The family of this 105-nucleotide sequence from Prunus yedoensis is "MIR6274 microRNA precursor family".
[Rfam]
RNA sequence: GAAUAACACUUUUUGCUAUCUCCGGCCAAUAACGCAAUGACAUAUAGGAUAAAUUUUCCACGUGUUAUUGUGUUAUUGGUCGGGAAUAACAAAACAGUGUUAUCC
Numbered sequence: 001g002a003a004u005a006a007c008a009c010u011u012u013u014u015g016c017u018a019u020c021u022c023c024g025g026c027c028a029a030u031a032a033c034g035c036a037a038u039g040a041c042a043u044a045u046a047g048g049a050u051a052a053a054u055u056u057u058c059c060a061c062g063u064g065u066u067a068u069u070g071u072g073u074u075a076u077u078g079g080u081c082g083g084g085a086a087u088a089a090c091a092a093a094a095c096a097g098u099g100u101u102a103u104c105c
Base pairs, nucleotide, nucleotide: 003103004102005101011094012093013092014091015090017088018087019086021084022083023082024081025080026079027078028077029076030075031074032073033072034071035070036069037068038067039066040065041064042063043062045060047058048057049056